Saccharomyces telomerase: a 318-nucleotide part of an RNA from Saccharomyces x bayanus. For this family Rfam cites "A phylogenetically based secondary structure for the yeast telomerase RNA" (Dandjinou et al., Curr Biol, 2004).
[Rfam]
RNA sequence: UGGUACUCCCUUCGUUUCCUGUCCCAUUUUGCCUCAAGCAUUGAAUAAGUUUGCGAGCGAAUAAUAACCGGGGAAAUGAUACAAGAGAAAAUCCAUAAUUUGGGAUCUUCUUGGAUGGAUUCAUUUAUGUAUUUAUUUGCUCAUUUUUGAGGAUCAAUACAAUAUUCUUGUCCUAUCCUUGCUAAAGUAAAGAACGGGCAUUAAUUUCUGAACGGAAAGAAUUGUGUGUUCACUUUAUGGUUUUCGCAUUGUACAUUUUUCAACUUGCAUGAGCAGUCGGUUUCCUCAAUACUUUUUCGGUGCUUACGAAUAAUUUUU
Dot-bracket structure: .....................................(((((((...................................((((((.(......(((((..((((...........................................(((...)))(((((((.((.((((........................................)))).))..))))))).))))..))))).....).).)))))...........((((....))))....................)))))))...............
Numbered sequence: 001u002g003g004u005a006c007u008c009c010c011u012u013c014g015u016u017u018c019c020u021g022u023c024c025c026a027u028u029u030u031g032c033c034u035c036a037a038g039c040a041u042u043g044a045a046u047a048a049g050u051u052u053g054c055g056a057g058c059g060a061a062u063a064a065u066a067a068c069c070g071g072g073g074a075a076a077u078g079a080u081a082c083a084a085g086a087g088a089a090a091a092u093c094c095a096u097a098a099u100u101u102g103g104g105a106u107c108u109u110c111u112u113g114g115a116u117g118g119a120u121u122c123a124u125u126u127a128u129g130u131a132u133u134u135a136u137u138u139g140c141u142c143a144u145u146u147u148u149g150a151g152g153a154u155c156a157a158u159a160c161a162a163u164a165u166u167c168u169u170g171u172c173c174u175a176u177c178c179u180u181g182c183u184a185a186a187g188u189a190a191a192g193a194a195c196g197g198g199c200a201u202u203a204a205u206u207u208c209u210g211a212a213c214g215g216a217a218a219g220a221a222u223u224g225u226g227u228g229u230u231c232a233c234u235u236u237a238u239g240g241u242u243u244u245c246g247c248a249u250u251g252u253a254c255a256u257u258u259u260u261c262a263a264c265u266u267g268c269a270u271g272a273g274c275a276g277u278c279g280g281u282u283u284c285c286u287c288a289a290u291a292c293u294u295u296u297u298c299g300g301u302g303c304u305u306a307c308g309a310a311u312a313a314u315u316u317u318u
Stems, first nucleotide, its partner, number of pairs: 038303007080253005085247001087245001094239005101232004148156003157227007165218002168215004265276004
Background: The family's RNA type in Rfam is non-coding RNA gene.